[Rfam]
RNA sequence: GCCGAGCUCGGUUGCGCGGGCUUGUAACCCAAGUGGGGGCAACAGGGUGGUGUGGAUGUUUGGUGCGGAAUCUAGGCCUGGGCUUGUGGUGUGCCUUUGCUGGCCUGCCCGUUCCAAGUCGGUAGUGGCCAGUAGGGACUUGGACGAAAGUCUGGGCCUCUCUGGACCUGAAGUGGUAGGAACGGCGUGAGGCUGGUUUCACAGAGCAGCGAUCACUGCCCGCUUCCGACGGUGGAAGGAUAACAGGCCGCUGCACCAUGGGCCCGCUUCAGGCCUAGGUUCCUACCACAACAGACCACCAUCUUU
Numbered sequence: 001g002c003c004g005a006g007c008u009c010g011g012u013u014g015c016g017c018g019g020g021c022u023u024g025u026a027a028c029c030c031a032a033g034u035g036g037g038g039g040c041a042a043c044a045g046g047g048u049g050g051u052g053u054g055g056a057u058g059u060u061u062g063g064u065g066c067g068g069a070a071u072c073u074a075g076g077c078c079u080g081g082g083c084u085u086g087u088g089g090u091g092u093g094c095c096u097u098u099g100c101u102g103g104c105c106u107g108c109c110c111g112u113u114c115c116a117a118g119u120c121g122g123u124a125g126u127g128g129c130c131a132g133u134a135g136g137g138a139c140u141u142g143g144a145c146g147a148a149a150g151u152c153u154g155g156g157c158c159u160c161u162c163u164g165g166a167c168c169u170g171a172a173g174u175g176g177u178a179g180g181a182a183c184g185g186c187g188u189g190a191g192g193c194u195g196g197u198u199u200c201a202c203a204g205a206g207c208a209g210c211g212a213u214c215a216c217u218g219c220c221c222g223c224u225u226c227c228g229a230c231g232g233u234g235g236a237a238g239g240a241u242a243a244c245a246g247g248c249c250g251c252u253g254c255a256c257c258a259u260g261g262g263c264c265c266g267c268u269u270c271a272g273g274c275c276u277a278g279g280u281u282c283c284u285a286c287c288a289c290a291a292c293a294g295a296c297c298a299c300c301a302u303c304u305u306u
Stems, first nucleotide, its partner, number of pairs: 001040003004023007028037003044305009054296001057293002059290001061288001063286003067282002070280010080265008089257001091256003095253001101250007109239002112237005118230005124224003127167001129165004134161004139156007168173001175220005184213001186211003193204003